This 93-nucleotide part of an RNA from Acidiferrobacter sp. SPIII_3 belongs to the Rfam family "Bacterial large subunit ribosomal RNA". Taxonomically the source falls in Acidiferrobacter (Bacteria, Pseudomonadati, Pseudomonadota, Acidiferrobacteraceae). Pairs were carried over by alignment from the consensus structure, which is taken from published work.
RNA sequence: UGCCCGGUGCUGGAAGGUUAAGUGAUGGGGUCAGCCGCAAGGCGAAGCUCUUGAUCGAAGCCCCAGUAAACGGCGGCCGUAACUAUAACGGUC
Numbered sequence: 001u002g003c004c005c006g007g008u009g010c011u012g013g014a015a016g017g018u019u020a021a022g023u024g025a026u027g028g029g030g031u032c033a034g035c036c037g038c039a040a041g042g043c044g045a046a047g048c049u050c051u052u053g054a055u056c057g058a059a060g061c062c063c064c065a066g067u068a069a070a071c072g073g074c075g076g077c078c079g080u081a082a083c084u085a086u087a088a089c090g091g092u093c
Base pairs, nucleotide, nucleotide: 002074003073004072007071008070009067010066011065012064013063016062017061018060022056027051028050029049030048031047034043035042075093076092077091078090079089080088